[Rfam]
RNA sequence: CUUCCCCUUGACUACCACAUUUUCUCCUGAGGGUAGAUCUUGGUGGCUGUGCUUACGGGGUGGAGUGAAGCGGCCGGGGUCUGCAGAGGGAGGGUCUGUCCGUGUCCUCCUCCUCCACGAAGUGGCUGCACAGAGCACU
Numbered sequence: 001c002u003u004c005c006c007c008u009u010g011a012c013u014a015c016c017a018c019a020u021u022u023u024c025u026c027c028u029g030a031g032g033g034u035a036g037a038u039c040u041u042g043g044u045g046g047c048u049g050u051g052c053u054u055a056c057g058g059g060g061u062g063g064a065g066u067g068a069a070g071c072g073g074c075c076g077g078g079g080u081c082u083g084c085a086g087a088g089g090g091a092g093g094g095u096c097u098g099u100c101c102g103u104g105u106c107c108u109c110c111u112c113c114u115c116c117a118c119g120a121a122g123u124g125g126c127u128g129c130a131c132a133g134a135g136c137a138c139u
Stems, first nucleotide, its partner, number of pairs: 004059003015046004073126004091114004
Dot-bracket structure: ...(((........((((........................))))..........))).............((((..............((((................))))........)))).............
Record summary
This 139-nucleotide sequence from Phyllostomus discolor belongs to the Rfam family "Small nucleolar RNA SNORA29". Pairs were carried over by alignment from the consensus structure, which was predicted with PFOLD. NCBI's taxonomy places the organism under Eukaryota, Deuterostomia, Vertebrata, Gnathostomata, Phyllostomus. Rfam links the family to the GO terms RNA processing and nucleolus. Rfam classes the family as an H/ACA-box small nucleolar RNA. From the family's description: ACA29 is a member of the H/ACA class of snoRNA that guide the sites of modification of uridines to pseudouridines.